[Rfam]
Nucleotides: 397
Base pairs, nucleotide, nucleotide: 001393002392003391004390005389006388007387019366020365021363022362023361024360025359026358030356031355032354033353034352035351038348039347043340044339045338046337047336049067050066051065052064055084056083057082058081059080060079114143115142116141117140118139119138120137121136177219178218179217180216181215182214183209184208185207186206189203190202191201195234197232198231238262239261240260241259242258243257244256247277249275250274251273252272280313281312282311284309285308286307287306289302290301291300294331295330296329297327299325370386371385372384373383374382
Number, partner (000 for none) and nucleotide at each position: 001393g002392g003391g004390g005389u006388c007387g008000a009000c010000u011000g012000g013000u014000u015000u016000u017000g018000a019366c020365a021363g022362c023361a024360a025359g026358u027000c028000g029000a030356a031355u032354u033353g034352a035351a036000u037000u038348g039347u040000a041000a042000g043340c044339a045338u046337g047336u048000g049067g050066a051065g052064a053000a054000c055084u056083g057082g058081a059080g060079u061000a062000a063000u064052u065051c066050u067049c068000g069000u070000a071000a072000a073000u074000a075000a076000a077000a078000g079060g080059c081058u082057c083056c084055a085000a086000a087000a088000c089000a090000c091000u092000u093000a094000c095000a096000c097000g098000g099000c100000g101000a102000a103000g104000g105000a106000a107000a108000c109000u110000a111000c112000g113000c114143u115142c116141u117140u118139g119138c120137u121136g122000c123000a124000u125000a126000a127000u128000c129000u130000g131000a132000a133000u134000c135000a136121u137120a138119g139118u140117a141116a142115g143114a144000u145000u146000a147000g148000c149000c150000a151000c152000g153000u154000u155000c156000c157000u158000a159000c160000a161000a162000g163000g164000u165000a166000g167000g168000a169000a170000a171000g172000c173000a174000g175000g176000a177219u178218u179217u180216a181215c182214c183209u184208c185207g186206a187000a188000a189203g190202c191201u192000c193000u194000g195234g196000u197232u198231u199000a200000u201191a202190g203189c204000g205000u206186u207185c208184g209183a210000u211000a212000u213000a214182g215181g216180u217179g218178a219177a220000u221000c222000g223000u224000a225000a226000a227000u228000u229000u230000a231198a232197a233000c234195c235000u236000a237000g238262a239261a240260a241259u242258a243257g244256u245000u246000a247277a248000g249275c250274u251273u252272c253000g254000g255000g256244a257243c258242u259241a260240u261239u262238u263000u264000g265000a266000a267000a268000c269000u270000a271000a272252g273251a274250a275249g276000a277247u278000a279000a280313g281312c282311u283000u284309u285308g286307u287306g288000u289302u290301g291300c292000u293000g294331u295330u296329c297327u298000u299325g300291g301290c302289a303000u304000a305000c306287c307286a308285c309284a310000c311282g312281g313280u314000c315000g316000a317000a318000a319000a320000u321000u322000u323000a324000a325299u326000c327297g328000a329296g330295a331294a332000a333000u334000a335000a336047a337046c338045a339044u340043g341000u342000a343000g344000a345000a346000a347039g348038c349000u350000c351035u352034u353033u354032a355031g356030u357000u358026g359025c360024u361023u362022g363021u364000u365020u366019g367000g368000a369000c370386c371385c372384g373383a374382g375000u376000u377000c378000g379000a380000u381000u382374c383373u384372c385371g386370g387007c388006g389005a390004c391003u392002c393001c394000a395000c396000a397000a